A member of the RNA family "Glycine riboswitch aptamer" from Roseovarius sp. TE539, 87 nucleotides long. A search with the family's covariance model found it, with a score of 58 bits.
[Rfam]
RNA sequence: UACAUCGGAUCGGGAGAACCGGCUGAGCCGGUGCCGAAGGAGCAACCGCCCCGGAAACUCUCAGGCAACAGGGACCGUUCCGACAUG
Numbered sequence: 001u002a003c004a005u006c007g008g009a010u011c012g013g014g015a016g017a018a019c020c021g022g023c024u025g026a027g028c029c030g031g032u033g034c035c036g037a038a039g040g041a042g043c044a045a046c047c048g049c050c051c052c053g054g055a056a057a058c059u060c061u062c063a064g065g066c067a068a069c070a071g072g073g074a075c076c077g078u079u080c081c082g083a084c085a086u087g
Base pairs, nucleotide, nucleotide: 006082007081008080009079011077012076013075019031020030021029022028033066034065035064036062037061040060041059042058046054047053